[Rfam]
RNA sequence: UCAGCCGGCCGGGCGGCCGCACCAGCAAACGCCGAAAGGCCGCUGGUGAGGAAAGUCCGGGCUCCAUGGAGACACGGUGCCGGAUAACGUCCGGCGAGGGCGACCUCAGGGAAAGUGCCACAGAAAGCAGACCGCCCCGCCUGUAUUUCGGCUCAGCCGGCGAUGACCGGAUCGAUCGAGCCGAAAUACUGGCGGGGUAAGGGUGAAAGGGUGGGGUAAGAGCCCACCGCGCGACUGGCAACAGGAGCGGCACGGUAAACCCCACCGGGAGCAAAACCGAAUAGGGGCGGCGCGAAGGGAAACCUUCAGGGCAGUUUCCGGCCCAGUCGCCCGGGUAGGUUGCGUGAGGCGGAUGGUGACAUCCGCCCAAGAUGAAUGGCCGCCACGUUUCGGCAUCCGCAAGGGUGCCGGGGCCAUACAGAACCCGGCUUACAGGCCGGCUGACGCU
Numbered sequence: 001u002c003a004g005c006c007g008g009c010c011g012g013g014c015g016g017c018c019g020c021a022c023c024a025g026c027a028a029a030c031g032c033c034g035a036a037a038g039g040c041c042g043c044u045g046g047u048g049a050g051g052a053a054a055g056u057c058c059g060g061g062c063u064c065c066a067u068g069g070a071g072a073c074a075c076g077g078u079g080c081c082g083g084a085u086a087a088c089g090u091c092c093g094g095c096g097a098g099g100g101c102g103a104c105c106u107c108a109g110g111g112a113a114a115g116u117g118c119c120a121c122a123g124a125a126a127g128c129a130g131a132c133c134g135c136c137c138c139g140c141c142u143g144u145a146u147u148u149c150g151g152c153u154c155a156g157c158c159g160g161c162g163a164u165g166a167c168c169g170g171a172u173c174g175a176u177c178g179a180g181c182c183g184a185a186a187u188a189c190u191g192g193c194g195g196g197g198u199a200a201g202g203g204u205g206a207a208a209g210g211g212u213g214g215g216g217u218a219a220g221a222g223c224c225c226a227c228c229g230c231g232c233g234a235c236u237g238g239c240a241a242c243a244g245g246a247g248c249g250g251c252a253c254g255g256u257a258a259a260c261c262c263c264a265c266c267g268g269g270a271g272c273a274a275a276a277c278c279g280a281a282u283a284g285g286g287g288c289g290g291c292g293c294g295a296a297g298g299g300a301a302a303c304c305u306u307c308a309g310g311g312c313a314g315u316u317u318c319c320g321g322c323c324c325a326g327u328c329g330c331c332c333g334g335g336u337a338g339g340u341u342g343c344g345u346g347a348g349g350c351g352g353a354u355g356g357u358g359a360c361a362u363c364c365g366c367c368c369a370a371g372a373u374g375a376a377u378g379g380c381c382g383c384c385a386c387g388u389u390u391c392g393g394c395a396u397c398c399g400c401a402a403g404g405g406u407g408c409c410g411g412g413g414c415c416a417u418a419c420a421g422a423a424c425c426c427g428g429c430u431u432a433c434a435g436g437c438c439g440g441c442u443g444a445c446g447c448u
Base pairs, nucleotide, nucleotide: 001444002443003442004441005440006439007438008437009436010435011433012384013383014382015381016380017379018378020048021047022046023045024044025043026042053431054430055429057428058427059426060425061424062271063270064269065268071317072316075267076266077265078264079263080094081093082092083091084090095109096107097106098105099104110262111261115260116259117256118255119254132202133201134198135197136196137195138194139193140192141191210228211227212226213225214224215223229251230249231248232247235244236243237242275341276340277339278338285332286331287330288329289328290327309324310323311322312321348367349366350365351364352363353362354361355360
RNA: Bacterial RNase P class A
Organism: Aquamicrobium sp. LC103